Shown here is an 89-nucleotide sequence from Arabidopsis lyrata, a member of the family "Small nucleolar RNA snoR8a". For this family Rfam cites "Multiple snoRNA gene clusters from Arabidopsis" (Brown et al., RNA, 2001). By type it is a C/D-box small nucleolar RNA.
RNA sequence: UUGGAUGCGAUGAUUGUAAAAGUAAUUCCUCGUACUGAAUGCUCUAAAGGCAUGAUAGACUCACAUUACACCCAUAGAAUAUGAGCAUC
Numbered sequence: 001u002u003g004g005a006u007g008c009g010a011u012g013a014u015u016g017u018a019a020a021a022g023u024a025a026u027u028c029c030u031c032g033u034a035c036u037g038a039a040u041g042c043u044c045u046a047a048a049g050g051c052a053u054g055a056u057a058g059a060c061u062c063a064c065a066u067u068a069c070a071c072c073c074a075u076a077g078a079a080u081a082u083g084a085g086c087a088u089c
Base pairs, nucleotide, nucleotide: 003089004088006087007086